[Rfam]
RNA sequence: AGCAGCGCGCAAGUGGGCCGAGCGUCGACCCCGGCGCCGCAGGGGCCCCAGCCCGGGCCCCGGAAAGCUGUGA
Numbered sequence: 001a002g003c004a005g006c007g008c009g010c011a012a013g014u015g016g017g018c019c020g021a022g023c024g025u026c027g028a029c030c031c032c033g034g035c036g037c038c039g040c041a042g043g044g045g046c047c048c049c050a051g052c053c054c055g056g057g058c059c060c061c062g063g064a065a066a067g068c069u070g071u072g073a
Base pairs, nucleotide, nucleotide: 003039005037006036007035008034042061043060044059045058046057047056

Rfam assigns this 73-nucleotide RNA sequence from Mycolicibacterium vaccae to the family "hya RNA".
Rfam classes the family as a cis-regulatory element.
NCBI's taxonomy places the organism under Bacteria, Actinomycetota, Actinomycetes, Mycobacteriaceae, Mycolicibacterium vaccae.
The sequence is in the family's curated seed alignment.
The family's consensus secondary structure is taken from published work.